Shown here is an 88-nucleotide RNA from Mucisphaera calidilacus, a member of the family "tRNA".
RNA sequence: GGACGGGUGUCCGAGCGGCUGAAGGAGCCGGUUUCGAAAACCGGUGUACGGGUUUCCCGUACCGUGGGUUCGAAUCCCACCCCGUCCG
Number, nucleotide and partner (000 for none) at each position: 001g087002g086003a085004c084005g083006g082007g081008u000009g000010u026011c025012c024013g000014a000015g000016c000017g000018g000019c000020u000021g000022a000023a000024g012025g011026a010027g000028c044029c043030g042031g041032u040033u000034u000035c000036g000037a000038a000039a000040a032041c031042c030043g029044g028045u000046g000047u000048a000049c000050g000051g000052g000053u000054u000055u000056c000057c000058c000059g000060u000061a000062c000063c000064g080065u079066g078067g077068g076069u000070u000071c000072g000073a000074a000075u000076c068077c067078c066079a065080c064081c007082c006083c005084g004085u003086c002087c001088g000